[Rfam]
RNA sequence: AGAAAGGAGCAAUAAUCAUUUUCUUGUUCUAUCAAGAGGGUGUUAUUGCUCCUUUCGUUCA
Numbered sequence: 001a002g003a004a005a006g007g008a009g010c011a012a013u014a015a016u017c018a019u020u021u022u023c024u025u026g027u028u029c030u031a032u033c034a035a036g037a038g039g040g041u042g043u044u045a046u047u048g049c050u051c052c053u054u055u056c057g058u059u060c061a
Stems, first nucleotide, its partner, number of pairs: 002056015017040001019038001022037005
The record is a 61-nucleotide RNA from Nicotiana attenuata, which matches "Plastid-psbA-2 3UTR RNA" in Rfam. The source organism's lineage runs through Eukaryota, Magnoliopsida, Mesangiospermae, Nicotianeae and Nicotiana. Rfam describes the family as follows. Plastid psbA-2 is a non-coding RNA (ncRNA) present in plastids. The family's consensus secondary structure was predicted with LocARNA. A reference for the family is Richter et al. (2023), "Retrograde signaling in plants: A critical review focusing on the GUN pathway and beyond", Plant Commun.